RNA sequence: AUCUAAGGAAGAGGCGCAAAAUACAUUAGUAUAGCUAUUGAGUUGAUUAAGCAACUGUGAUUUAGUUAAAAAGGGUAUUUUGCCGAAGUAAUGAAUUACUUAUUUAAUUUAUUAUUGGGGACCAGUUUAAUAGACUGGUAACUGUCGUAGUUUUCUACGGGGUGCUUUUAAGGUA
Numbered sequence: 001a002u003c004u005a006a007g008g009a010a011g012a013g014g015c016g017c018a019a020a021a022u023a024c025a026u027u028a029g030u031a032u033a034g035c036u037a038u039u040g041a042g043u044u045g046a047u048u049a050a051g052c053a054a055c056u057g058u059g060a061u062u063u064a065g066u067u068a069a070a071a072a073g074g075g076u077a078u079u080u081u082g083c084c085g086a087a088g089u090a091a092u093g094a095a096u097u098a099c100u101u102a103u104u105u106a107a108u109u110u111a112u113u114a115u116u117g118g119g120g121a122c123c124a125g126u127u128u129a130a131u132a133g134a135c136u137g138g139u140a141a142c143u144g145u146c147g148u149a150g151u152u153u154u155c156u157a158c159g160g161g162g163u164g165c166u167u168u169u170a171a172g173g174u175a
Stems, first nucleotide, its partner, number of pairs: 007169005016083009032068006087116012117143002121139007145160006

This 175-nucleotide RNA sequence from Apilactobacillus ozensis belongs to the Rfam family "Lysine riboswitch aptamer". The base pairs follow the family's consensus structure, which is taken from published work.